[Rfam]
The family of this 225-nucleotide RNA sequence from Solanum tuberosum is "MIR8007 microRNA precursor family". Gene Ontology terms of the family: RISC complex and miRNA-mediated post-transcriptional gene silencing. The base pairs follow the family's consensus structure, which was predicted with RNAalifold.

RNA sequence: AUGUGACACUUUUCAGAUUUCGAGAUUCAAAUGAGUCUAUCUUUGACCGUAAAUUUUUCAUAUAUAUUUUAAUUAUUUUGAAUUGUCAAUUAUUGUUACUUGUAGUACUUUUUAUGUAGUUUAUAAAUAUAUAAAUUUCAUUUCAAAAAAAUUGAAUAUUUCGUGAACAAAUUUCUGGUCAAACUUAAACCGUUUGACUCUCGAAGAACGAAAAGUGUCACAUAU
Numbered sequence: 001a002u003g004u005g006a007c008a009c010u011u012u013u014c015a016g017a018u019u020u021c022g023a024g025a026u027u028c029a030a031a032u033g034a035g036u037c038u039a040u041c042u043u044u045g046a047c048c049g050u051a052a053a054u055u056u057u058u059c060a061u062a063u064a065u066a067u068u069u070u071a072a073u074u075a076u077u078u079u080g081a082a083u084u085g086u087c088a089a090u091u092a093u094u095g096u097u098a099c100u101u102g103u104a105g106u107a108c109u110u111u112u113u114a115u116g117u118a119g120u121u122u123a124u125a126a127a128u129a130u131a132u133a134a135a136u137u138u139c140a141u142u143u144c145a146a147a148a149a150a151a152u153u154g155a156a157u158a159u160u161u162c163g164u165g166a167a168c169a170a171a172u173u174u175c176u177g178g179u180c181a182a183a184c185u186u187a188a189a190c191c192g193u194u195u196g197a198c199u200c201u202c203g204a205a206g207a208a209c210g211a212a213a214a215g216u217g218u219c220a221c222a223u224a225u
Base pairs, nucleotide, nucleotide: 001223002222003221004220005219006218007217008216009215010214011213012212013211014210018206019205020204021203022202023201024200025199027197028196029195030194031193032192033191035190036189038187039186042183043182044181045180046179047178048177049176051174052173053172054171055170056169057167058166059165060164061163062161064159065158066157067156068155069154076148077147078146079145080144081143082142084140085139094133095132096131100126101125102124103123104122105121107120108119109118